The record is a 93-nucleotide RNA from Streptomyces termitum, which matches "che1 RNA" in Rfam. It scores 82 bits against the family's covariance model. The organism belongs to Streptomyces, within Bacteria. The base pairs follow the family's consensus structure, which is taken from published work.

RNA sequence: CGGACAGGGGGGUUCCUGCUCCCACCGGGCAGGACCUGUCCACCGGGCCGUGCGCACGCGCGGCACAUGGUUGUCGCUCGGGGGUGAUCGCCG
Number, nucleotide and partner (000 for none) at each position: 001c000002g041003g040004a039005c038006a037007g036008g035009g000010g000011g000012g000013u000014u034015c033016c032017u031018g030019c029020u028021c000022c000023c000024a000025c000026c000027g000028g020029g019030c018031a017032g016033g015034a014035c008036c007037u006038g005039u004040c003041c002042a000043c000044c000045g000046g000047g064048c063049c062050g061051u060052g059053c058054g000055c000056a000057c000058g053059c052060g051061c050062g049063g048064c047065a000066c000067a000068u000069g000070g000071u000072u000073g000074u000075c000076g000077c000078u000079c000080g000081g000082g000083g000084g000085u000086g000087a000088u000089c000090g000091c000092c000093g000